[Rfam]
RNA sequence: GGGUGUUCCGCUCGAUUGUGGGUGGGCAGGUUAAGCGCAGGUCGGGCCGCCAGCG
Number, nucleotide and partner (000 for none) at each position: 001g000002g000003g000004u000005g027006u026007u000008c025009c024010g023011c022012u021013c000014g000015a000016u000017u000018g000019u000020g000021g012022g011023u010024g009025g008026g006027c005028a000029g000030g000031u000032u000033a000034a000035g000036c055037g054038c053039a000040g051041g050042u049043c000044g000045g000046g000047c000048c000049g042050c041051c040052a000053g038054c037055g036
The record is a 55-nucleotide RNA from Allobosea sp. Root381, which matches "nhaA-I RNA" in Rfam. The organism belongs to Allobosea, within Bacteria. Rfam classes the family as a riboswitch. The family's consensus secondary structure is taken from published work.